[Rfam]
RNA sequence: CAGGUGGACCGGGCCCCUCUGGCGGCGCUUGCCGUGAUGUCGGCCACGCUA
Numbered sequence: 001c002a003g004g005u006g007g008a009c010c011g012g013g014c015c016c017c018u019c020u021g022g023c024g025g026c027g028c029u030u031g032c033c034g035u036g037a038u039g040u041c042g043g044c045c046a047c048g049c050u051a
Base pairs, nucleotide, nucleotide: 006045007044009043010042011041012040022035023034024033025032026031

The record is a 51-nucleotide RNA sequence from Paracoccus suum, which matches "terC RNA" in Rfam.
The family's consensus secondary structure is taken from published work.
The match comes from Rfam's covariance-model search (50 bits).